RNA sequence: AGCUUUGCGCGGUGACAGUAUCGUAGCCAAUGAGGUUUAUCCGUGGUGUGAUUAUUGCUAAUUGAAAACAUUUAAAAAAACAGUUGGCAUACUGUACAUAUGGUUUUGCAACCUGUAAAAAAAGUUGACGACUU
Number, nucleotide and partner (000 for none) at each position: 001a000002g000003c000004u000005u000006u000007g000008c000009g000010c000011g000012g000013u000014g000015a000016c000017a000018g000019u000020a052021u051022c050023g049024u048025a000026g047027c046028c045029a000030a000031u000032g000033a000034g042035g041036u000037u000038u000039a000040u000041c035042c034043g000044u000045g028046g027047u026048g024049u023050g022051a021052u020053u000054a000055u000056u000057g000058c000059u000060a000061a000062u000063u000064g000065a000066a000067a000068a000069c000070a000071u000072u000073u000074a000075a000076a000077a000078a000079a000080a000081c000082a000083g000084u000085u000086g000087g109088c108089a107090u000091a104092c103093u102094g101095u100096a000097c000098a000099u000100a095101u094102g093103g092104u091105u000106u000107u089108g088109c087110a000111a000112c000113c000114u000115g000116u000117a000118a000119a000120a000121a000122a134123a133124g132125u131126u000127g000128a000129c000130g000131a125132c124133u123134u122